[Rfam]
RNA sequence: AUAUAGCCAGCGCUGAAUUCUAUGGAAGCGGGGGAACCAAGUCCGGCUAUCGAUUAGCCAAAUGGGGUGAAUCACCGAAAGGUGACGGGUAAAUUCCUUUCAAUCCGAACCCGACAGCUAACCUCGUAAGCGUUGAAAGGGGGCAAA
Numbered sequence: 001a002u003a004u005a006g007c008c009a010g011c012g013c014u015g016a017a018u019u020c021u022a023u024g025g026a027a028g029c030g031g032g033g034g035a036a037c038c039a040a041g042u043c044c045g046g047c048u049a050u051c052g053a054u055u056a057g058c059c060a061a062a063u064g065g066g067g068u069g070a071a072u073c074a075c076c077g078a079a080a081g082g083u084g085a086c087g088g089g090u091a092a093a094u095u096c097c098u099u100u101c102a103a104u105c106c107g108a109a110c111c112c113g114a115c116a117g118c119u120a121a122c123c124u125c126g127u128a129a130g131c132g133u134u135g136a137a138a139g140g141g142g143g144c145a146a147a
Stems, first nucleotide, its partner, number of pairs: 011132004018027003028127006038064002065112003073084004087106004
This 147-nucleotide sequence from Desulfitobacterium metallireducens belongs to the Rfam family "c-di-AMP riboswitch aptamer (ydaO/yuaA leader)". Rfam's curators write: This family represents a conserved RNA structure found upstream of the ydaO and yuaA genes in Bacillus subtilis and related genes in other bacteria. Lineage of the source: Bacteria > Bacillota > Eubacteriales > Desulfitobacteriaceae > Desulfitobacterium metallireducens. The pairing is the family consensus, mapped onto this sequence.